[Rfam]
The family of this 63-nucleotide RNA sequence from Piliocolobus tephrosceles is "U7 small nuclear RNA". Pairs were carried over by alignment from the consensus structure, which was predicted with PFOLD.
RNA sequence: AAGUGUUGCAGCUCUUUUAGAAUAGGUCUAGCAGGUCUUCUGGGUUUUUAGCCGGAAACCCUC
Numbered sequence: 001a002a003g004u005g006u007u008g009c010a011g012c013u014c015u016u017u018u019a020g021a022a023u024a025g026g027u028c029u030a031g032c033a034g035g036u037c038u039u040c041u042g043g044g045u046u047u048u049u050a051g052c053c054g055g056a057a058a059c060c061c062u063c
Stems, first nucleotide, its partner, number of pairs: 034060003038057006
Lineage of the source: Eukaryota > Chordata > Teleostomi > Catarrhini > Piliocolobus. A reference for the family is Spycher et al. (1994), "3' end processing of mouse histone pre-mRNA: evidence for additional base-pairing between U7 snRNA and pre-mRNA", Nucleic Acids Res. From the family's description: Animal histone pre-mRNAs are spliced by a different mechanism than nuclear pre-mRNAs and self-splicing introns. This processing involves the U7 snRNP, which contains only one RNA species: U7. The 5' end of U7 RNA is thought to base-pair to a conserved spacer element downstream of the cleavage site in histone pre-mRNA. This family contains a number of annotated U7 pseudogenes.